[Rfam]
Nucleotides: 252
Stems, first nucleotide, its partner, number of pairs: 001244002005240001006082006012054005019047002022044001027040005062075003066071001085214001087212003093205001095203001099144006115128001117126002148179003152174001154172002159167003187197002190194001217231001219229001221228002
Number, partner (000 for none) and nucleotide at each position: 001244c002243c003000g004000g005240c006082a007081g008080a009079g010078c011077u012054g013053c014052u015051g016050g017000c018000a019047c020046c021000a022044u023000a024000c025000a026000c027040u028039g029038g030037c031036g032000a033000u034000a035000u036031u037030g038029c039028c040027g041000c042000c043000g044022a045000a046020g047019g048000c049000g050016u051015c052014a053013g054012u055000a056000a057000a058000c059000u060000g061000c062075u063074g064073c065000g066071c067000g068000g069000u070000g071066g072000g073064g074063c075062g076000a077011a078010g079009u080008u081007c082006u083000u084000a085214c086000a087212g088211c089210a090000u091000g092000g093205u094000c095203u096000g097000g098000c099144a100143c101142g102141u103140c104139a105000g106000c107000a108000g109000c110000g111000c112000u113000a114000u115128g116000u117126g118125g119000c120000u121000g122000a123000a124000a125118c126117c127000c128115u129000g130000a131000c132000g133000g134000a135000a136000g137000a138000g139104u140103g141102g142101c143100g144099u145000c146000u147000g148179g149178c150177a151000c152174c153000g154172g155171g156000c157000g158000c159167g160166c161165u162000g163000g164000a165161a166160g167159u168000c169000g170000c171155c172154u173000g174152g175000u176000u177150u178149g179148c180000g181000g182000a183000a184000g185000a186000g187197a188196c189000g190194g191000c192000g193000g194190c195000g196188g197187u198000g199000g200000a201000g202000c203095g204000u205093g206000a207000g208000c209000u210089u211088g212087c213000g214085g215000c216000g217231c218000u219229g220000a221228c222227c223000a224000a225000a226000c227222g228221g229219u230000u231217g232000g233000a234000a235000a236000a237000a238000c239000u240005g241000g242000a243002g244001g245000g246000g247000a248000a249000a250000u251000g252000a
The family of this 252-nucleotide sequence from Kluyvera genomosp. 3 is "Erse small RNA". A search with the family's covariance model found it, with a score of 171 bits. For this family Rfam cites "Esre: a novel essential non-coding RNA in Escherichia coli" (Chen et al., FEBS Lett, 2012). NCBI's taxonomy places the organism under Bacteria, Pseudomonadota, Gammaproteobacteria, Enterobacteriaceae, Kluyvera.